[Rfam]
RNA sequence: CCUCCAGUUCUUGACAUGCAGGUUGCUGUUCGGUGCAGUUGCAUGUAAUAUAAGGAGGAACAUAAAAGCCAGUGCAAUGUCUUCGGUACCAGAGUGUUUCCCAUCCUCUCGUCCUAUCCUCAGUCACUGGUACAGAA
Numbered sequence: 001c002c003u004c005c006a007g008u009u010c011u012u013g014a015c016a017u018g019c020a021g022g023u024u025g026c027u028g029u030u031c032g033g034u035g036c037a038g039u040u041g042c043a044u045g046u047a048a049u050a051u052a053a054g055g056a057g058g059a060a061c062a063u064a065a066a067a068g069c070c071a072g073u074g075c076a077a078u079g080u081c082u083u084c085g086g087u088a089c090c091a092g093a094g095u096g097u098u099u100c101c102c103a104u105c106c107u108c109u110c111g112u113c114c115u116a117u118c119c120u121c122a123g124u125c126a127c128u129g130g131u132a133c134a135g136a137a
Stems, first nucleotide, its partner, number of pairs: 001058005015045006023038004070129005089111001091109004096105001
The family of this 137-nucleotide RNA sequence from Synaphobranchus kaupii is "Small nucleolar RNA SNORA57". U99 belongs to the H/ACA class of snoRNAs which are thought to guide the sites of modification of uridines to pseudouridines, the target for this family is unknown. Gene Ontology terms of the family: nucleolus and RNA processing. The literature on the family includes a 2003 paper in Nucleic Acids Res by Vitali et al., "Identification of 13 novel human modification guide RNAs". Pairs were carried over by alignment from the consensus structure, which was predicted with PFOLD. It is annotated as an H/ACA-box small nucleolar RNA. The organism belongs to Synaphobranchus, within Eukaryota.